[Rfam]
RNA sequence: AACUGUAAAUGAUGACUGUUAAAAAAACAUUGGGAAUCUCUCUGAAAAAGAAUGAAAGAAAUGUUUUUACUGAUGCAGUG
Numbered sequence: 001a002a003c004u005g006u007a008a009a010u011g012a013u014g015a016c017u018g019u020u021a022a023a024a025a026a027a028c029a030u031u032g033g034g035a036a037u038c039u040c041u042c043u044g045a046a047a048a049a050g051a052a053u054g055a056a057a058g059a060a061a062u063g064u065u066u067u068u069a070c071u072g073a074u075g076c077a078g079u080g
Base pairs, nucleotide, nucleotide: 002079003078004077005076006075007074
RNA: Small nucleolar RNA SNORD79